This 82-nucleotide RNA from Gongylonema pulchrum belongs to the Rfam family "tRNA".

RNA sequence: GCAGUCAUGUCCGAGUGGUUAAGGAGUUUGAUUAGAAGUCAAAUGGGCUUUGCCCGCGCAGGUUCGAAUCCUGCUGACUGCG
Numbered sequence: 001g002c003a004g005u006c007a008u009g010u011c012c013g014a015g016u017g018g019u020u021a022a023g024g025a026g027u028u029u030g031a032u033u034a035g036a037a038g039u040c041a042a043a044u045g046g047g048c049u050u051u052g053c054c055c056g057c058g059c060a061g062g063u064u065c066g067a068a069u070c071c072u073g074c075u076g077a078c079u080g081c082g
Stems, first nucleotide, its partner, number of pairs: 001081007010025003027043005058074005